[Rfam]
RNA sequence: CGAGCAGGGAAAGUGUGUAUCGACGAUGUGCAAAUUUUCCUGUGCACUCUGUUCGAAAGAAUUUCCUGCAAAAUUGAUUUGGUGAAGGUGGGCAGUUGUGUUUCAUAUCCACCGUUGAUUCUUUCAACAAUCAUCUUCCCCAUAUUU
Numbered sequence: 001c002g003a004g005c006a007g008g009g010a011a012a013g014u015g016u017g018u019a020u021c022g023a024c025g026a027u028g029u030g031c032a033a034a035u036u037u038u039c040c041u042g043u044g045c046a047c048u049c050u051g052u053u054c055g056a057a058a059g060a061a062u063u064u065c066c067u068g069c070a071a072a073a074u075u076g077a078u079u080u081g082g083u084g085a086a087g088g089u090g091g092g093c094a095g096u097u098g099u100g101u102u103u104c105a106u107a108u109c110c111a112c113c114g115u116u117g118a119u120u121c122u123u124u125c126a127a128c129a130a131u132c133a134u135c136u137u138c139c140c141c142a143u144a145u146u147u
Stems, first nucleotide, its partner, number of pairs: 004069007015047006081141002084138008095128004
Annotation:
A member of the RNA family "small nucleolar RNA snoR135" from Hibiscus trionum, 147 nucleotides long. A search with the family's covariance model found it, with a score of 118 bits. On this family, see Chen and Wu, Nucleic Acids Res 2009: "Mining small RNA sequencing data: a new approach to identify small nucleolar RNAs in Arabidopsis".